[Rfam]
RNA sequence: UACCCUCAACUUAGCCAGAAGUUUGCAUUCUAUGGAAUUCAAUCCAGAGCAAUGAGGACAAAGGGGUCCAUUUCCCUUCCGCAAGGAAAAAUAUUUAAUUGCCAUGACCGUCGCGAGUAGAAUUCGAAAGAGGCCACGCAUGG
Numbered sequence: 001u002a003c004c005c006u007c008a009a010c011u012u013a014g015c016c017a018g019a020a021g022u023u024u025g026c027a028u029u030c031u032a033u034g035g036a037a038u039u040c041a042a043u044c045c046a047g048a049g050c051a052a053u054g055a056g057g058a059c060a061a062a063g064g065g066g067u068c069c070a071u072u073u074c075c076c077u078u079c080c081g082c083a084a085g086g087a088a089a090a091a092u093a094u095u096u097a098a099u100u101g102c103c104a105u106g107a108c109c110g111u112c113g114c115g116a117g118u119a120g121a122a123u124u125c126g127a128a129a130g131a132g133g134c135c136a137c138g139c140a141u142g143g
Base pairs, nucleotide, nucleotide: 004057005056006055007054008053014050015049021044023042024041025040027038028037029036030035078087079086080085102143103142104141105140106139110134111133112132114130120125

The record is a 143-nucleotide RNA from Desulfosporosinus acididurans, which matches "RT-14 RNA" in Rfam.
The source organism's lineage runs through Bacteria, Bacillati, Bacillota, Desulfitobacteriaceae and Desulfosporosinus.
It is annotated as a small RNA.
A search with the family's covariance model found it, with a score of 61 bits.
The base pairs follow the family's consensus structure, which is taken from published work.